The family of this 138-nucleotide RNA from Thermoactinomyces mirandus is "Ribosomal protein L20 leader". From the family's description: This family is a putative r-protein leader autoregulatory structure found in B. subtilis and other low-GC Gram-positive bacteria. The base pairs follow the family's consensus structure, which was predicted with CMfinder. The organism belongs to Thermoactinomyces, within Bacteria.
[Rfam]
Nucleotides: 138
Stems, first nucleotide, its partner, number of pairs: 011026006028060003036053003039049002103125009
Number, partner (000 for none) and nucleotide at each position: 001000u002000c003000u004000c005000a006000g007000a008000a009000g010000u011026a012025g013024g014023a015022g016021c017000g018000c019000c020000c021016g022015c023014u024013u025012c026011u027000c028060a029059c030058c031000u032000g033000u034000u035000c036053a037052a038051c039049g040048c041000g042000a043000g044000g045000g046000a047000u048040g049039c050000a051038g052037u053036u054000g055000a056000c057000u058030g059029g060028u061000u062000u063000u064000g065000a066000a067000a068000a069000c070000a071000g072000c073000u074000a075000c076000u077000u078000u079000u080000c081000c082000u083000g084000g085000u086000u087000g088000g089000a090000g091000u092000u093000g094000g095000a096000a097000g098000c099000a100000a101000a102000g103125u104124g105123u106122g107121g108120g109119c110118g111117u112000u113000u114000u115000c116000u117111g118110c119109g120108c121107u122106c123105a124104c125103g126000c127000u128000u129000u130000u131000u132000u133000u134000a135000u136000u137000u138000u